[Rfam]
RNA: TPP riboswitch aptamer (THI element)
Organism: Paracoccus caeni
RNA sequence: AAGAACACCUCGGGGUGCCCUGUCGGGCUGAGACGCGAAUAGCGGACCCGUUGAACCUGAUCCGGCUAACACCGGCGGAGGGAAGGUUUCGCUGUCCUUC
Numbered sequence: 001a002a003g004a005a006c007a008c009c010u011c012g013g014g015g016u017g018c019c020c021u022g023u024c025g026g027g028c029u030g031a032g033a034c035g036c037g038a039a040u041a042g043c044g045g046a047c048c049c050g051u052u053g054a055a056c057c058u059g060a061u062c063c064g065g066c067u068a069a070c071a072c073c074g075g076c077g078g079a080g081g082g083a084a085g086g087u088u089u090c091g092c093u094g095u096c097c098u099u100c
Stems, first nucleotide, its partner, number of pairs: 007087004011050004016044001017028004035043002056081003062075004